[Rfam]
Shown here is a 183-nucleotide RNA sequence from Prevotella aff. ruminicola Tc2-24, a member of the family "Bacteroidales-1 6S-Bacteroidales RNA suggested".
Bacteroidales-1 was first reported in a comparative genomics-based approach of genome and metagenome sequences from Weinberg et al. 2010 In a high-resolution transcriptome map study of Bacteroides thetaiotaomicron, Ryan et al. 2020 report this sRNA as 6S RNA homologue of Bacteroides, in the study they obtain evidence of small product RNAs (pRNAs) related to 6S function.

RNA sequence: GGUCGUGCCGCAUAGAUCGGGAUACUCUACAUUAAAAUAAUCAUCGGGACCGUUUCCCUUGCCAAUGGCGGGCCACAGUCAUCCCUUACGGGAGAGCAGCAAUGCCGGUGGAUUACAACAGCAGGGAGCCCCCAUAUCGUGUGAAACAGGAGUUUUCACCAAAUCAUCGGCACGAACCCGCUU
Numbered sequence: 001g002g003u004c005g006u007g008c009c010g011c012a013u014a015g016a017u018c019g020g021g022a023u024a025c026u027c028u029a030c031a032u033u034a035a036a037a038u039a040a041u042c043a044u045c046g047g048g049a050c051c052g053u054u055u056c057c058c059u060u061g062c063c064a065a066u067g068g069c070g071g072g073c074c075a076c077a078g079u080c081a082u083c084c085c086u087u088a089c090g091g092g093a094g095a096g097c098a099g100c101a102a103u104g105c106c107g108g109u110g111g112a113u114u115a116c117a118a119c120a121g122c123a124g125g126g127a128g129c130c131c132c133c134a135u136a137u138c139g140u141g142u143g144a145a146a147c148a149g150g151a152g153u154u155u156u157c158a159c160c161a162a163a164u165c166a167u168c169g170g171c172a173c174g175a176a177c178c179c180g181c182u183u
Stems, first nucleotide, its partner, number of pairs: 052129003056126002059124004066117002073111004083092003096105003

Taxonomically the source falls in Prevotella (Bacteria, Pseudomonadati, Bacteroidota, Bacteroidales).